[Rfam]
RNA sequence: GGCCAAUGAUGCAUUCAUACAUUUGUCCGUACCAUAUGAGAAGUCAUUUUACUAAAGACUUCUUUGAUGCGUUCUUAGAUUCUGAGGCCU
Numbered sequence: 001g002g003c004c005a006a007u008g009a010u011g012c013a014u015u016c017a018u019a020c021a022u023u024u025g026u027c028c029g030u031a032c033c034a035u036a037u038g039a040g041a042a043g044u045c046a047u048u049u050u051a052c053u054a055a056a057g058a059c060u061u062c063u064u065u066g067a068u069g070c071g072u073u074c075u076u077a078g079a080u081u082c083u084g085a086g087g088c089c090u
Base pairs, nucleotide, nucleotide: 001089002088003087004086